[Rfam]
RNA sequence: GUGCUAUGAGUGAUGAGAUUACCAAUUUUACAGUUAUCCCUGGCUGAUAUAAUAUAGGGUGCUGAAAUUUUGUAUUCUGACAUGCAC
Numbered sequence: 001g002u003g004c005u006a007u008g009a010g011u012g013a014u015g016a017g018a019u020u021a022c023c024a025a026u027u028u029u030a031c032a033g034u035u036a037u038c039c040c041u042g043g044c045u046g047a048u049a050u051a052a053u054a055u056a057g058g059g060u061g062c063u064g065a066a067a068u069u070u071u072g073u074a075u076u077c078u079g080a081c082a083u084g085c086a087c
Stems, first nucleotide, its partner, number of pairs: 001087004006083003

Notes
This 87-nucleotide sequence from Arachis duranensis belongs to the Rfam family "Small nucleolar RNA R38". The family has 19 seed sequences and 2,295 matches in Rfam 15.1. Rfam describes the family as follows. snoR38 is a C/D box small nucleolar RNA conserved across yeast, human, Arabidopsis and rice. It is encoded in the intron of elongation factor-1 gamma in both pombe and cerevisiae. snoR38 guides the methylation of 2'-O-ribose sites in 28S rRNA. It scores 51 bits against the family's covariance model. For this family Rfam cites "The high diversity of snoRNAs in plants: identification and comparative study of 120 snoRNA genes from Oryza sativa" (Chen et al., Nucleic Acids Res, 2003). Taxonomically the source falls in Arachis (Eukaryota, Viridiplantae, Pentapetalae, dalbergioids sensu lato).